[Rfam]
RNA sequence: GGCCCAAAUUUGGGGUACAGUAGAUUAGUAGGGUCAGCUGAUAUUACUAAUCUACUCUACUUCAAAUUUGGACCC
Numbered sequence: 001g002g003c004c005c006a007a008a009u010u011u012g013g014g015g016u017a018c019a020g021u022a023g024a025u026u027a028g029u030a031g032g033g034u035c036a037g038c039u040g041a042u043a044u045u046a047c048u049a050a051u052c053u054a055c056u057c058u059a060c061u062u063c064a065a066a067u068u069u070g071g072a073c074c075c
Stems, first nucleotide, its partner, number of pairs: 001074002004071006011064007019056005025050006033042003